[Rfam]
RNA sequence: AAAUAUAUACUGCCGAAUUCCCUUAUUAGGGAAACGGGGGAUACAACACAAGGGGGUUAAUUCCGGAACAGCCGGAAAGGGUGCUCUUCUACCUAACCCGACAACUAACCUCGUAAGCAAAGAGAGGAGAAAAC
Numbered sequence: 001a002a003a004u005a006u007a008u009a010c011u012g013c014c015g016a017a018u019u020c021c022c023u024u025a026u027u028a029g030g031g032a033a034a035c036g037g038g039g040g041a042u043a044c045a046a047c048a049c050a051a052g053g054g055g056g057u058u059a060a061u062u063c064c065g066g067a068a069c070a071g072c073c074g075g076a077a078a079g080g081g082u083g084c085u086c087u088u089c090u091a092c093c094u095a096a097c098c099c100g101a102c103a104a105c106u107a108a109c110c111u112c113g114u115a116a117g118c119a120a121a122g123a124g125a126g127g128a129g130a131a132a133a134c
Stems, first nucleotide, its partner, number of pairs: 011119003018033005034114006044053001054099003062076004080093003
Rfam assigns this 134-nucleotide RNA from Clostridium thermosuccinogenes to the family "c-di-AMP riboswitch aptamer (ydaO/yuaA leader)". It scores 78 bits against the family's covariance model. From the family's description: This family represents a conserved RNA structure found upstream of the ydaO and yuaA genes in Bacillus subtilis and related genes in other bacteria. The ydaO/yuaA element is thought to act as a genetic 'off' switch for the ydaO and yuaA genes in its native state. It is believed that the element may be triggered during osmotic shock leading to activation of ydaO, a predicted amino acid transporter gene, and members of the yuaA-yubG operon which code for KtrA and KtrB K+ transporters.